[Rfam]
RNA sequence: GGCGGGAUAGCUCAGCUGGUUAGAGCGCUCGGCUCAUACCCGGGAGGUCAAGAGUUCAAGUCUCUUUCUCGCUA
Dot-bracket structure: (((((((..((((.........)))).(((((.......))))).....(((((.......)))))))))))).
tRNA: a 74-nucleotide sequence from Spiroplasma melliferum. The organism belongs to Spiroplasma, within Bacteria. Clan: tRNA clan.